[Rfam]
RNA: MIR1520 microRNA precursor family
Organism: Glycine max
RNA sequence: UUCUUAUUAGAUGAUGAUUGUCACGUGUCAUGUUUUGAUUGGAUGUCAACUCCAUGAAAGAUGAAAUGAAUUAUUGUUUUGAUUGAUCAAUCAGAACAUAACACGUGACAAACAUUAUCU
Numbered sequence: 001u002u003c004u005u006a007u008u009a010g011a012u013g014a015u016g017a018u019u020g021u022c023a024c025g026u027g028u029c030a031u032g033u034u035u036u037g038a039u040u041g042g043a044u045g046u047c048a049a050c051u052c053c054a055u056g057a058a059a060g061a062u063g064a065a066a067u068g069a070a071u072u073a074u075u076g077u078u079u080u081g082a083u084u085g086a087u088c089a090a091u092c093a094g095a096a097c098a099u100a101a102c103a104c105g106u107g108a109c110a111a112a113c114a115u116u117a118u119c120u
Base pairs, nucleotide, nucleotide: 020109021108022107023106025104026103030099031098033096034095035094036093038091039090040089